[Rfam]
RNA sequence: UAUUGUUCUCAGGGCGGGGUGAAAGUCCCCACCGGCGGUAAAGGCGCAGCGUCGCCAAGCCCGCGAGCGCCCGGUACUGUCUGCAUCCGUUGGGAUACAGCGCAGCCGGGGUCAGCAGAUUCGGUGCAACUCCGAAGCCGACGGUCAUAGUCCGGAUGAAAGAGAACGGUU
Numbered sequence: 001u002a003u004u005g006u007u008c009u010c011a012g013g014g015c016g017g018g019g020u021g022a023a024a025g026u027c028c029c030c031a032c033c034g035g036c037g038g039u040a041a042a043g044g045c046g047c048a049g050c051g052u053c054g055c056c057a058a059g060c061c062c063g064c065g066a067g068c069g070c071c072c073g074g075u076a077c078u079g080u081c082u083g084c085a086u087c088c089g090u091u092g093g094g095a096u097a098c099a100g101c102g103c104a105g106c107c108g109g110g111g112u113c114a115g116c117a118g119a120u121u122c123g124g125u126g127c128a129a130c131u132c133c134g135a136a137g138c139c140g141a142c143g144g145u146c147a148u149a150g151u152c153c154g155g156a157u158g159a160a161a162g163a164g165a166a167c168g169g170u171u
Base pairs, nucleotide, nucleotide: 003169004168005167006166007165008164009163010162017029018028019027031151032150033140034139035064036063037062038061059138060137067116068115120136121135122134123133124132142154143153144152